[Rfam]
Background
This 146-nucleotide RNA sequence from Chenopodium quinoa belongs to the Rfam family "Small nucleolar RNA snoR136". A search with the family's covariance model found it, with a score of 62 bits. Rfam classes the family as an H/ACA-box small nucleolar RNA. Rfam links the family to the GO terms RNA processing and nucleolus.

RNA sequence: UUGGGUUCACUUUGAUUAGGCCUAAAAAUGGUGCUAAUGAUAAAUUGGCAUUGUUUAGAAAUGUGAAAUCCUAAACUAAUUUGUUCCCCUCGCUAUCCAUUGUAGAUUAUUUGAAUGCUACAUUUGGACGUUGGGUAAUUAUAUUU
Numbered sequence: 001u002u003g004g005g006u007u008c009a010c011u012u013u014g015a016u017u018a019g020g021c022c023u024a025a026a027a028a029u030g031g032u033g034c035u036a037a038u039g040a041u042a043a044a045u046u047g048g049c050a051u052u053g054u055u056u057a058g059a060a061a062u063g064u065g066a067a068a069u070c071c072u073a074a075a076c077u078a079a080u081u082u083g084u085u086c087c088c089c090u091c092g093c094u095a096u097c098c099a100u101u102g103u104a105g106a107u108u109a110u111u112u113g114a115a116u117g118c119u120a121c122a123u124u125u126g127g128a129c130g131u132u133g134g135g136u137a138a139u140u141a142u143a144u145u146u
Stems, first nucleotide, its partner, number of pairs: 001074002003071003008065003012061002016058003024055001026054001028052001031049001034048003083139003087135003091130002096128004105118001106116002